[Rfam]
RNA: Bacterial RNase P class B
Organism: Lactobacillus acidophilus
RNA sequence: GAGGAAAGUCCGGGCCCGCGCAAGCUGAGAUGCUUGUAGUGUUCGUGCUAAGCCCAAUAAGCUUAGGGGCCGUGUAAACGGCUACGGCGGCCAAACGCGCUAAGGCGUCAGCUAUGCGCUAGUAGGUCUGAAAAGUGCCACAGUGACGAAACGAUCAGGGAAACCUGAGCGGUGGAACGGGUAAACCCCGCGAGCGAGUAACCCAAACUUUUGGUAGGGGCGUUUUGCCAAGCAAAUUGAAGCGACGGCAAUACAGCGGUAACGCUGAGAUAGAUGAUGACUGAAGGAGCUUGUGCCUGAACAAGUUCUGGAACAACACACGGCUUAU
Numbered sequence: 001g002a003g004g005a006a007a008g009u010c011c012g013g014g015c016c017c018g019c020g021c022a023a024g025c026u027g028a029g030a031u032g033c034u035u036g037u038a039g040u041g042u043u044c045g046u047g048c049u050a051a052g053c054c055c056a057a058u059a060a061g062c063u064u065a066g067g068g069g070c071c072g073u074g075u076a077a078a079c080g081g082c083u084a085c086g087g088c089g090g091c092c093a094a095a096c097g098c099g100c101u102a103a104g105g106c107g108u109c110a111g112c113u114a115u116g117c118g119c120u121a122g123u124a125g126g127u128c129u130g131a132a133a134a135g136u137g138c139c140a141c142a143g144u145g146a147c148g149a150a151a152c153g154a155u156c157a158g159g160g161a162a163a164c165c166u167g168a169g170c171g172g173u174g175g176a177a178c179g180g181g182u183a184a185a186c187c188c189c190g191c192g193a194g195c196g197a198g199u200a201a202c203c204c205a206a207a208c209u210u211u212u213g214g215u216a217g218g219g220g221c222g223u224u225u226u227g228c229c230a231a232g233c234a235a236a237u238u239g240a241a242g243c244g245a246c247g248g249c250a251a252u253a254c255a256g257c258g259g260u261a262a263c264g265c266u267g268a269g270a271u272a273g274a275u276g277a278u279g280a281c282u283g284a285a286g287g288a289g290c291u292u293g294u295g296c297c298u299g300a301a302c303a304a305g306u307u308c309u310g311g312a313a314c315a316a317c318a319c320a321c322g323g324c325u326u327a328u
Base pairs, nucleotide, nucleotide: 006326007325008324010323011322012321014319015198017196018195019194020037021036022035023034024033025032043193044192045191046190047189048066049065050064051063052062053061067085068083069082070081071080072079073078086188087187089128090127091126092125097119098118099117100116104113105112106111135186136185137182138181139180152171153170155168156167157166158165159164202219203218204217223253225251226250227249228248229247254267255266256265257264258263286309287308288307289306290305291304292303293302294301